[Rfam]
About this RNA
This 78-nucleotide RNA sequence from Oncorhynchus kisutch belongs to the Rfam family "mir-193 microRNA precursor family". Its family is annotated with miRNA-mediated post-transcriptional gene silencing and RISC complex in the Gene Ontology. The literature on the family includes a 2010 paper in BMC Genomics by Linsen et al., "Small RNA expression and strain specificity in the rat". The source organism's lineage runs through Eukaryota, Chordata, Euteleostomi, Protacanthopterygii and Oncorhynchus. It scores 63 bits against the family's covariance model.
RNA sequence: GUUAGAGGGUGGGUCUUUGUUGGCAAGGUGAGUAGUGUUCUCUCCUCUCAACUGGCCUACAAAGUCCCAGUUUCUGGC
Numbered sequence: 001g002u003u004a005g006a007g008g009g010u011g012g013g014u015c016u017u018u019g020u021u022g023g024c025a026a027g028g029u030g031a032g033u034a035g036u037g038u039u040c041u042c043u044c045c046u047c048u049c050a051a052c053u054g055g056c057c058u059a060c061a062a063a064g065u066c067c068c069a070g071u072u073u074c075u076g077g078c
Base pairs, nucleotide, nucleotide: 003076004075005074006073007072008071010069011068012067013066015064016063017062018061019060022057023056024055026053027052029050030049